[Rfam]
RNA sequence: CGAGCGAACCCUCGUUAAGGAACUCGGCAAAAUGACCCCGUAACUUCGGGAGAAGGGGUGCUGACGUAUGUCAGCCGCAGUGAAUAGGCCCAAGCGACUGUUUAUCAAAAACACAGGUCUCUGCCAAACCGAAAGGUGACGUAUAGGGGCUGACGCCUGCCCGGUGCUGGAAGGUUAAAAGGAGUGCUUAGCUUCGGCGAAGGUACGAAUUGAAGCCCCAGUAAACGGCGGCCGUAACUAUAACGGUCCUAAGGUAGCGAAAUUCCUUGUCGGGUAAGUUCCGACCCGCACGAAAGGCGUAACGAUUUGGGCACUGUCUCAACGAGGGACUCG
Numbered sequence: 001c002g003a004g005c006g007a008a009c010c011c012u013c014g015u016u017a018a019g020g021a022a023c024u025c026g027g028c029a030a031a032a033u034g035a036c037c038c039c040g041u042a043a044c045u046u047c048g049g050g051a052g053a054a055g056g057g058g059u060g061c062u063g064a065c066g067u068a069u070g071u072c073a074g075c076c077g078c079a080g081u082g083a084a085u086a087g088g089c090c091c092a093a094g095c096g097a098c099u100g101u102u103u104a105u106c107a108a109a110a111a112c113a114c115a116g117g118u119c120u121c122u123g124c125c126a127a128a129c130c131g132a133a134a135g136g137u138g139a140c141g142u143a144u145a146g147g148g149g150c151u152g153a154c155g156c157c158u159g160c161c162c163g164g165u166g167c168u169g170g171a172a173g174g175u176u177a178a179a180a181g182g183a184g185u186g187c188u189u190a191g192c193u194u195c196g197g198c199g200a201a202g203g204u205a206c207g208a209a210u211u212g213a214a215g216c217c218c219c220a221g222u223a224a225a226c227g228g229c230g231g232c233c234g235u236a237a238c239u240a241u242a243a244c245g246g247u248c249c250u251a252a253g254g255u256a257g258c259g260a261a262a263u264u265c266c267u268u269g270u271c272g273g274g275u276a277a278g279u280u281c282c283g284a285c286c287c288g289c290a291c292g293a294a295a296g297g298c299g300u301a302a303c304g305a306u307u308u309g310g311g312c313a314c315u316g317u318c319u320c321a322a323c324g325a326g327g328g329a330c331u332c333g
Stems, first nucleotide, its partner, number of pairs: 001333004009328008018319003035059005044049001060075006076080001088312007095304002099113003116151008124141001128137003154299004159229003164226002166222005173217003179211002184206005191198002230248006249253001259286001269285006
RNA: Bacterial large subunit ribosomal RNA, nucleotides 1654 to 1986
Organism: Falseniella ignava